[Rfam]
RNA: Ribosomal S15 leader
RNA sequence: UGUCAUCGCUGGAGUAGAGAUCGGCGAAUGAUGUAUCUCAACACUCAAAUUUAUUAGGAGUAACAAAUGUCUCUAACAACCGAGCAAAAAGCAGCAAUCGUUGCUGAAUAUGGUCGUGACGGU
Numbered sequence: 001u002g003u004c005a006u007c008g009c010u011g012g013a014g015u016a017g018a019g020a021u022c023g024g025c026g027a028a029u030g031a032u033g034u035a036u037c038u039c040a041a042c043a044c045u046c047a048a049a050u051u052u053a054u055u056a057g058g059a060g061u062a063a064c065a066a067a068u069g070u071c072u073c074u075a076a077c078a079a080c081c082g083a084g085c086a087a088a089a090a091g092c093a094g095c096a097a098u099c100g101u102u103g104c105u106g107a108a109u110a111u112g113g114u115c116g117u118g119a120c121g122g123u
Stems, first nucleotide, its partner, number of pairs: 007026006055076001057074004